[Rfam]
Nucleotides: 066
Stems, first nucleotide, its partner, number of pairs: 013047005018039005027064006034057001
Number, partner (000 for none) and nucleotide at each position: 001000g002000g003000g004000a005000a006000a007000c008000u009000c010000c011000c012000a013047g014046g015045c016044c017043c018039c019038g020037c021036u022035g023000u024000a025000g026000a027064g028063g029062g030061a031060c032059c033000g034057u035022c036021a037020g038019c039018g040000g041000c042000c043017g044016g045015g046014c047013c048000a049000g050000a051000a052000a053000g054000a055000a056000u057034g058000a059032g060031g061030u062029c063028c064027c065000c066000a
Edr gene ribosomal frameshift signal: a 66-nucleotide RNA sequence from Echinops telfairi. By type it is a frameshift element. Gene Ontology term of the family: translational frameshifting. The source organism's lineage runs through Eukaryota, Sarcopterygii, Amniota, Afrotheria and Echinops. The base pairs follow the family's consensus structure, which is taken from published work. The literature on the family includes a 2005 paper in Nucleic Acids Res by Manktelow et al., "Characterization of the frameshift signal of Edr, a mammalian example of programmed -1 ribosomal frameshifting".